[Rfam]
RNA: mir-399 microRNA precursor family
Organism: Panicum virgatum
RNA sequence: UACUGAAUGGCAGGGCAGCUCUCCUUUGGCAUGGAAAGGCUGGAAUUUACAUCGAAUAUCUAUUGUUUCCACAGCCUCCAUGCCAGAGGAGAGCUGCACUGUGAUUCUCAC
Numbered sequence: 001u002a003c004u005g006a007a008u009g010g011c012a013g014g015g016c017a018g019c020u021c022u023c024c025u026u027u028g029g030c031a032u033g034g035a036a037a038g039g040c041u042g043g044a045a046u047u048u049a050c051a052u053c054g055a056a057u058a059u060c061u062a063u064u065g066u067u068u069c070c071a072c073a074g075c076c077u078c079c080a081u082g083c084c085a086g087a088g089g090a091g092a093g094c095u096g097c098a099c100u101g102u103g104a105u106u107c108u109c110a111c
Stems, first nucleotide, its partner, number of pairs: 005107004011101003015097005021091004027085009